[Rfam]
RNA sequence: UUCGGUAUUCGCCUCCGAGACGGCAAGCCUGUGUUUCGAAAUGAACUGGCAUGCCGACCGUGGUCAUGUUGACCACCAGGGCGGUGAUGGAAACGUCACGGCCUCCCGUGUUUGGAAAGGAGUACAUCGAUGGGUUCA
Numbered sequence: 001u002u003c004g005g006u007a008u009u010c011g012c013c014u015c016c017g018a019g020a021c022g023g024c025a026a027g028c029c030u031g032u033g034u035u036u037c038g039a040a041a042u043g044a045a046c047u048g049g050c051a052u053g054c055c056g057a058c059c060g061u062g063g064u065c066a067u068g069u070u071g072a073c074c075a076c077c078a079g080g081g082c083g084g085u086g087a088u089g090g091a092a093a094c095g096u097c098a099c100g101g102c103c104u105c106c107c108g109u110g111u112u113u114g115g116a117a118a119g120g121a122g123u124a125c126a127u128c129g130a131u132g133g134g135u136u137c138a
Stems, first nucleotide, its partner, number of pairs: 003132002006129001013122004019058001021056005027050003033046004060076005079104004084099006105115002
Dot-bracket structure: ..((.(......((((..(.(((((.(((...((((......)))).))).))))).).(((((.......)))))..((((.((((((....)))))).))))((.......))...))))......).))......
RNA: Molybdenum/Tungsten riboswitch aptamer (Moco RNA motif)
Organism: Arenimonas maotaiensis